[Rfam]
RNA sequence: AGCAAUAGAAAGGCUUUAUGGGCGGUCUAGGCUAAGCCUCCGGAAAGGAGGUGGCGCUACAUGGAGAUAAAAGACGCUUUGACGCUUAUGAUUGAAUUCAGUUUGCUUAUUGUUGCACUACUGACGUUAAUCUUUACUGUCGUCAUUGCUCUUUUGAACCAAAAGAAAUAGACCGCCCCAUCGGAAGGUAACGGUCUAUUUCACGAUACUUAUCCAACAGCCGACCGCUCUUAAAGCGGCUAUUGCUCGGGAGUCGUGUUACUAGCACGGCUC
Numbered sequence: 001a002g003c004a005a006u007a008g009a010a011a012g013g014c015u016u017u018a019u020g021g022g023c024g025g026u027c028u029a030g031g032c033u034a035a036g037c038c039u040c041c042g043g044a045a046a047g048g049a050g051g052u053g054g055c056g057c058u059a060c061a062u063g064g065a066g067a068u069a070a071a072a073g074a075c076g077c078u079u080u081g082a083c084g085c086u087u088a089u090g091a092u093u094g095a096a097u098u099c100a101g102u103u104u105g106c107u108u109a110u111u112g113u114u115g116c117a118c119u120a121c122u123g124a125c126g127u128u129a130a131u132c133u134u135u136a137c138u139g140u141c142g143u144c145a146u147u148g149c150u151c152u153u154u155u156g157a158a159c160c161a162a163a164a165g166a167a168a169u170a171g172a173c174c175g176c177c178c179c180a181u182c183g184g185a186a187g188g189u190a191a192c193g194g195u196c197u198a199u200u201u202c203a204c205g206a207u208a209c210u211u212a213u214c215c216a217a218c219a220g221c222c223g224a225c226c227g228c229u230c231u232u233a234a235a236g237c238g239g240c241u242a243u244u245g246c247u248c249g250g251g252a253g254u255c256g257u258g259u260u261a262c263u264a265g266c267a268c269g270g271c272u273c
Stems, first nucleotide, its partner, number of pairs: 001247005007241002012222004017180001021179002024176001025173004032054003037051005063152004069146001077090001101143002184202002225239004251273010
RNA: BsrG